[Rfam]
RNA sequence: GGUUGCAAGUUUGAAGCCAUAGCCAAAGUGUUGUGGCAUGGCUCUGUCAAAUUUCAACAAAUCUGUGAAUUCUGCU
Numbered sequence: 001g002g003u004u005g006c007a008a009g010u011u012u013g014a015a016g017c018c019a020u021a022g023c024c025a026a027a028g029u030g031u032u033g034u035g036g037c038a039u040g041g042c043u044c045u046g047u048c049a050a051a052u053u054u055c056a057a058c059a060a061a062u063c064u065g066u067g068a069a070u071u072c073u074g075c076u
Base pairs, nucleotide, nucleotide: 013044015043016042017041018040021076022075023074026071027070028039029038030037048065049064051062052061053060054059

Shown here is a 76-nucleotide sequence from Crocodylus porosus, a member of the family "Mammalian CPEB3 ribozyme". It scores 36 bits against the family's covariance model. Gene Ontology term of the family: RNA nuclease activity.